[Rfam]
RNA sequence: UGGAAAUGAUGAAAUGGAGGUUAAAAUGUAGAGGGAUGAAUGUGAGUGAAUCGAAGAGCUUGAUUGUUUUAUUCAAUAUGGAAAAGGAAAAAGUAUGUGUGUGUGUGUGUAAGAAUGUGUGUGGUGCAUGUGAGCAUUCAGGGCCAAAUAAUGAUGCAAAUUGUGGACACUGAAAAGAAUUGCUGAUAUUGGAGUGCAUCUGAGGCACAGUUGCUAAGUCAUAGGGCCUUUGUUGCAACAUUGCCUGUGAUUAAAGCCCAAAAUAUGUUCACAGUUUGUAUCUAGAAAAUGUAAACCUCUGACAUGUUCUUUUAGUCAUAUAAAUGAAUAUGUAAUCUGAUCCAA
Numbered sequence: 001u002g003g004a005a006a007u008g009a010u011g012a013a014a015u016g017g018a019g020g021u022u023a024a025a026a027u028g029u030a031g032a033g034g035g036a037u038g039a040a041u042g043u044g045a046g047u048g049a050a051u052c053g054a055a056g057a058g059c060u061u062g063a064u065u066g067u068u069u070u071a072u073u074c075a076a077u078a079u080g081g082a083a084a085a086g087g088a089a090a091a092a093g094u095a096u097g098u099g100u101g102u103g104u105g106u107g108u109g110u111a112a113g114a115a116u117g118u119g120u121g122u123g124g125u126g127c128a129u130g131u132g133a134g135c136a137u138u139c140a141g142g143g144c145c146a147a148a149u150a151a152u153g154a155u156g157c158a159a160a161u162u163g164u165g166g167a168c169a170c171u172g173a174a175a176a177g178a179a180u181u182g183c184u185g186a187u188a189u190u191g192g193a194g195u196g197c198a199u200c201u202g203a204g205g206c207a208c209a210g211u212u213g214c215u216a217a218g219u220c221a222u223a224g225g226g227c228c229u230u231u232g233u234u235g236c237a238a239c240a241u242u243g244c245c246u247g248u249g250a251u252u253a254a255a256g257c258c259c260a261a262a263a264u265a266u267g268u269u270c271a272c273a274g275u276u277u278g279u280a281u282c283u284a285g286a287a288a289a290u291g292u293a294a295a296c297c298u299c300u301g302a303c304a305u306g307u308u309c310u311u312u313u314a315g316u317c318a319u320a321u322a323a324a325u326g327a328a329u330a331u332g333u334a335a336u337c338u339g340a341u342c343c344a345a
Stems, first nucleotide, its partner, number of pairs: 001344004210239005216229001218227003
Rfam assigns this 345-nucleotide RNA from Thamnophis sirtalis to the family "Small Cajal body-specific RNA 7".
Lineage of the source: Eukaryota > Chordata > Squamata > Unidentata > Thamnophis.
It is annotated as a small Cajal body RNA.
On this family, see Darzacq et al., EMBO J 2002: "Cajal body-specific small nuclear RNAs: a novel class of 2'-O-methylation and pseudouridylation guide RNAs".
Rfam links the family to the GO terms RNA processing and nucleolus.
The match comes from Rfam's covariance-model search (134 bits).
Pairs were carried over by alignment from the consensus structure.